[Rfam]
RNA: Fungal signal recognition particle RNA
RNA sequence: GCCUGUGAUGGGCCAAUUGGGAAGUUGACUCACGUUAACUUCACUUUCCGAUGUUACUAAGAAUCCUGGCUGGUGCCCGGUUCGAUUCGUGUGGUCAUUGGCAUUCUCUUCGAGCAAUCGUUGAUAAGAUGCUGAUGGUAAGGCGAGGCGUACCGCUUCAGAGGAGCAAUCCUGCAGAGCGAGCUUCACCAUGCAAAGGCGAUUCUGGAUAACACCUAGGGGUUAUACGGGAAGUGGGGUGACACACAGUUGAGUUGGCGACUCUACUU
Numbered sequence: 001g002c003c004u005g006u007g008a009u010g011g012g013c014c015a016a017u018u019g020g021g022a023a024g025u026u027g028a029c030u031c032a033c034g035u036u037a038a039c040u041u042c043a044c045u046u047u048c049c050g051a052u053g054u055u056a057c058u059a060a061g062a063a064u065c066c067u068g069g070c071u072g073g074u075g076c077c078c079g080g081u082u083c084g085a086u087u088c089g090u091g092u093g094g095u096c097a098u099u100g101g102c103a104u105u106c107u108c109u110u111c112g113a114g115c116a117a118u119c120g121u122u123g124a125u126a127a128g129a130u131g132c133u134g135a136u137g138g139u140a141a142g143g144c145g146a147g148g149c150g151u152a153c154c155g156c157u158u159c160a161g162a163g164g165a166g167c168a169a170u171c172c173u174g175c176a177g178a179g180c181g182a183g184c185u186u187c188a189c190c191a192u193g194c195a196a197a198g199g200c201g202a203u204u205c206u207g208g209a210u211a212a213c214a215c216c217u218a219g220g221g222g223u224u225a226u227a228c229g230g231g232a233a234g235u236g237g238g239g240u241g242a243c244a245c246a247c248a249g250u251u252g253a254g255u256u257g258g259c260g261a262c263u264c265u266a267c268u269u
Base pairs, nucleotide, nucleotide: 001013002012003011018266019265020264021263026257027256028255029254030253031252032251036242038240039239040238041237042236043235044234045233046232047231048230049229051067053065055063057061070220071219072216073215074214075213077208078207079206080205082202083201084200086197087196089194090193091192092191093190094189096137097136098135099134100133101132102131103130104127105126107124108123110120112119113118145187146186147185148184149183154181155180156179157178158177163172164171165170